This 114-nucleotide RNA from Branchiostoma belcheri belongs to the Rfam family "mir-2060 microRNA precursor family". It scores 60 bits against the family's covariance model. NCBI's taxonomy places the organism under Eukaryota, Eumetazoa, Bilateria, Chordata, Branchiostoma.
[Rfam]
RNA sequence: UUUUGCCUCUAUGUGGAUGGUGUUUAGCACCAAGGACAGGUAUCAAUGCCUAUAAACAGAUGUAUUUGCCCGUGUGUGGAUGGCGUUCAGUACCAAGGACAGAUACGGCUUUCA
Number, nucleotide and partner (000 for none) at each position: 001u000002u000003u000004u105005g104006c000007c102008u101009c000010u099011a000012u000013g000014u000015g000016g000017a000018u095019g094020g093021u092022g091023u090024u089025u000026a087027g086028c085029a000030c083031c082032a081033a000034g075035g000036a073037c072038a000039g070040g069041u068042a067043u000044c000045a000046a000047u000048g000049c000050c000051u000052a000053u000054a000055a000056a000057c000058a000059g000060a000061u000062g000063u000064a000065u000066u000067u042068g041069c040070c039071c000072g037073u036074g000075u034076g000077u000078g000079g000080a000081u032082g031083g030084c000085g028086u027087u026088c000089a024090g023091u022092a021093c020094c019095a018096a000097g000098g000099a010100c000101a008102g007103a000104u005105a004106c000107g000108g000109c000110u000111u000112u000113c000114a000